[Rfam]
RNA sequence: UAAUUAAAAGGGCAAACUUACCGAAAGGUAAGGACGCAAAGCCAAGGGCCUAAGUUACAAAGUAACAUGUAGUAUGGUAGCCAGCUGCACAA
Numbered sequence: 001u002a003a004u005u006a007a008a009a010g011g012g013c014a015a016a017c018u019u020a021c022c023g024a025a026a027g028g029u030a031a032g033g034a035c036g037c038a039a040a041g042c043c044a045a046g047g048g049c050c051u052a053a054g055u056u057a058c059a060a061a062g063u064a065a066c067a068u069g070u071a072g073u074a075u076g077g078u079a080g081c082c083a084g085c086u087g088c089a090c091a092a
Stems, first nucleotide, its partner, number of pairs: 012037002017032006040086003046082002048078003055072004
About this RNA: The family of this 92-nucleotide RNA sequence from Clostridium sp. HMP27 is "c-di-GMP-I riboswitch aptamer". The family's consensus secondary structure is taken from published work.